[Rfam]
RNA: SAH (S-adenosyl-L-homocysteine) riboswitch aptamer
Organism: Lysobacter enzymogenes
RNA sequence: CCCGCCGAGGGGCGCUGCGACCGUGACGGACACGGCCAGGCUCGGCGAGGCCCAGGUCCCAACGGCGCCCGGUUUGA
Numbered sequence: 001c002c003c004g005c006c007g008a009g010g011g012g013c014g015c016u017g018c019g020a021c022c023g024u025g026a027c028g029g030a031c032a033c034g035g036c037c038a039g040g041c042u043c044g045g046c047g048a049g050g051c052c053c054a055g056g057u058c059c060c061a062a063c064g065g066c067g068c069c070c071g072g073u074u075u076g077a
Stems, first nucleotide, its partner, number of pairs: 003047006021035005